The family of this 102-nucleotide RNA from Priestia filamentosa is "Purine riboswitch aptamer". Taxonomically the source falls in Priestia (Bacteria, Bacillati, Bacillota, Bacilli).

Nucleotides: 102
Base pairs, nucleotide, nucleotide: 019087021085022084023083024082025081029049030048031047033045034044035043058078059077060076061075062074063073064072
Number, partner (000 for none) and nucleotide at each position: 001000a002000a003000a004000a005000u006000a007000a008000u009000g010000u011000u012000c013000u014000c015000u016000u017000u018000c019087c020000a021085u022084c023083g024082u025081a026000u027000a028000a029049u030048u031047u032000g033045g034044g035043g036000a037000a038000u039000a040000u041000g042000g043035c044034c045033c046000a047031a048030a049029a050000g051000u052000u053000u054000c055000u056000a057000c058078c059077g060076a061075g062074c063073u064072a065000c066000c067000g068000u069000a070000a071000a072064u073063g074062g075061c076060u077059u078058g079000a080000c081025u082024a083023c084022g085021a086000g087019g088000u089000g090000c091000a092000a093000c094000a095000a096000a097000a098000c099000a100000a101000g102000g

The family's consensus secondary structure is taken from published work.